Rfam assigns this 77-nucleotide RNA from Alligator mississippiensis to the family "Mammalian CPEB3 ribozyme". The base pairs follow the family's consensus structure, which is taken from published work. It scores 38 bits against the family's covariance model.
[Rfam]
RNA sequence: GGUUGCAAGUUUGAGGUCACAGCAGAAACACUUACAGUGCAGCCUGUCAGAUUCCAACAAAAUCUGUGAAUUCUGCU
Dot-bracket structure: ..............[[[...(((((((.((.......))..]]]...((((((.......))))))....)))))))